[Rfam]
RNA sequence: CUCCCGUGAAGUUUAGUACUCUUUUAAACUUCACGGGAGUUGAACUCCCGUAAAAUUUAUUUCCCUCAAUAAACUCCACGGGAGUUCAACUCCCGUGGAGUUUGUUGU
Numbered sequence: 001c002u003c004c005c006g007u008g009a010a011g012u013u014u015a016g017u018a019c020u021c022u023u024u025u026a027a028a029c030u031u032c033a034c035g036g037g038a039g040u041u042g043a044a045c046u047c048c049c050g051u052a053a054a055a056u057u058u059a060u061u062u063c064c065c066u067c068a069a070u071a072a073a074c075u076c077c078a079c080g081g082g083a084g085u086u087c088a089a090c091u092c093c094c095g096u097g098g099a100g101u102u103u104g105u106u107g108u
Base pairs, nucleotide, nucleotide: 008032009031010030011029012028013027014026033051034050035049036048037047038046039045040044069105070104071103072102073101074100075099076098077097078096079095080094081093082092083091084090
A member of the RNA family "Histidine operon leader", 108 nucleotides long. Rfam's curators write: At least 6 amino acid operons are known to be regulated by attenuation. In each a leader sequence of 150-200 bp is found upstream of the first gene in the operon. A search with the family's covariance model found it, with a score of 49 bits. The family's consensus secondary structure is taken from published work. Rfam classes the family as a cis-regulatory leader.